A member of the RNA family "terC RNA" from Qipengyuania soli, 63 nucleotides long.
It is annotated as a cis-regulatory element.
RNA sequence: ACUGCGGACCGGGCCCCUCUGGCGCGUGCGUUUUUGGACCACGCGUGAUGUCGGACCGCAUCG
Numbered sequence: 001a002c003u004g005c006g007g008a009c010c011g012g013g014c015c016c017c018u019c020u021g022g023c024g025c026g027u028g029c030g031u032u033u034u035u036g037g038a039c040c041a042c043g044c045g046u047g048a049u050g051u052c053g054g055a056c057c058g059c060a061u062c063g
Stems, first nucleotide, its partner, number of pairs: 006057002009054004022046007